[Rfam]
Source information:
This 553-nucleotide part of an RNA from an uncultured archaeon belongs to the Rfam family "Archaeal large subunit ribosomal RNA". It is one of the family's seed sequences. Rfam links the family to the GO terms structural constituent of ribosome and ribosome. The family's consensus secondary structure is taken from published work.
RNA sequence: GAUUUAUGCCAUUUAGUGGAUGGCUCGGCUCAAGCGCUGAUGAGGGGCGUGCCAAGUUGCGAAAAGCCUCGGGUAAGCACAAGGAGCUUUAGAACCGGGGAUGCCCUAAUGAGAACUCUUGACAUUUUUAUGUCGAUCCGUAAGGAUCGGGAACGCUCUGAAUUGAAACAUCUUAGUAGGAGCAGGAGGAGAAAUCAAUUGAGAUGCCGUGAGUAACGGCGAGUGAAAUCGGCACAGUUCAAACCGAAUUCCUUCUCGAAAGAGAGGGAAGAUGUGGGGUUGUAAGUAUGACUCAUAUAAAGCCCGCCCUAUUGAAGUUAAAGUCCGUUGGAACACGGCUCCAUAGAGAGUGAAAGCCUCGUAGGCGUAAGAUAGAGGGCUUGAGUCUUUACUUGAGUACCGUAGGUUGAAUUUCCUGCGGGAAGCUGGGGGUUACCAACCUCCAAAACUAAACACGUCUUGAGACCGAUAGCGUAAUAGUACCGUGAGGGAAAGCUGAAAAGCACCCCAAGUAAGGAGGUGAAAAGAGCCUGAAAUUAAAUGGCGAUAGAGU
Numbered sequence: 001g002a003u004u005u006a007u008g009c010c011a012u013u014u015a016g017u018g019g020a021u022g023g024c025u026c027g028g029c030u031c032a033a034g035c036g037c038u039g040a041u042g043a044g045g046g047g048c049g050u051g052c053c054a055a056g057u058u059g060c061g062a063a064a065a066g067c068c069u070c071g072g073g074u075a076a077g078c079a080c081a082a083g084g085a086g087c088u089u090u091a092g093a094a095c096c097g098g099g100g101a102u103g104c105c106c107u108a109a110u111g112a113g114a115a116c117u118c119u120u121g122a123c124a125u126u127u128u129u130a131u132g133u134c135g136a137u138c139c140g141u142a143a144g145g146a147u148c149g150g151g152a153a154c155g156c157u158c159u160g161a162a163u164u165g166a167a168a169c170a171u172c173u174u175a176g177u178a179g180g181a182g183c184a185g186g187a188g189g190a191g192a193a194a195u196c197a198a199u200u201g202a203g204a205u206g207c208c209g210u211g212a213g214u215a216a217c218g219g220c221g222a223g224u225g226a227a228a229u230c231g232g233c234a235c236a237g238u239u240c241a242a243a244c245c246g247a248a249u250u251c252c253u254u255c256u257c258g259a260a261a262g263a264g265a266g267g268g269a270a271g272a273u274g275u276g277g278g279g280u281u282g283u284a285a286g287u288a289u290g291a292c293u294c295a296u297a298u299a300a301a302g303c304c305c306g307c308c309c310u311a312u313u314g315a316a317g318u319u320a321a322a323g324u325c326c327g328u329u330g331g332a333a334c335a336c337g338g339c340u341c342c343a344u345a346g347a348g349a350g351u352g353a354a355a356g357c358c359u360c361g362u363a364g365g366c367g368u369a370a371g372a373u374a375g376a377g378g379g380c381u382u383g384a385g386u387c388u389u390u391a392c393u394u395g396a397g398u399a400c401c402g403u404a405g406g407u408u409g410a411a412u413u414u415c416c417u418g419c420g421g422g423a424a425g426c427u428g429g430g431g432g433u434u435a436c437c438a439a440c441c442u443c444c445a446a447a448a449c450u451a452a453a454c455a456c457g458u459c460u461u462g463a464g465a466c467c468g469a470u471a472g473c474g475u476a477a478u479a480g481u482a483c484c485g486u487g488a489g490g491g492a493a494a495g496c497u498g499a500a501a502a503g504c505a506c507c508c509c510a511a512g513u514a515a516g517g518a519g520g521u522g523a524a525a526a527g528a529g530c531c532u533g534a535a536a537u538u539a540a541a542u543g544g545c546g547a548u549a550g551a552g553u
Base pairs, nucleotide, nucleotide: 007546008545009544010543011542012541013540014539015538016537022531023496024495027467028466029464030463031462032461033460034459035457036456044107045106046105047104048061049060050059067100068099069098070097071096072095076088077087078086111120112119113118136147137146138145139144154185155183156182157181158180159179165172166171195202196201206233207232208231209230216224217223236450237449238448239447244277245276246275254265255264256263257262290387291386292385301381302380303379304378317366318365319364323339325338326337327336328335342346348360349359350358400421401420402419403418404417405416406415428444429443430442431441432440483490484489